[Rfam]
RNA: Small nucleolar RNA SNORD2
Organism: Parambassis ranga
RNA sequence: GGGUGAAAUGAUGGCAUACCAUCUUUCGGGACUGACUCUAGAAAUGGAGACUUCCUUUUAACGUCACUGAUCACUG
Numbered sequence: 001g002g003g004u005g006a007a008a009u010g011a012u013g014g015c016a017u018a019c020c021a022u023c024u025u026u027c028g029g030g031a032c033u034g035a036c037u038c039u040a041g042a043a044a045u046g047g048a049g050a051c052u053u054c055c056u057u058u059u060a061a062c063g064u065c066a067c068u069g070a071u072c073a074c075u076g
Stems, first nucleotide, its partner, number of pairs: 002075005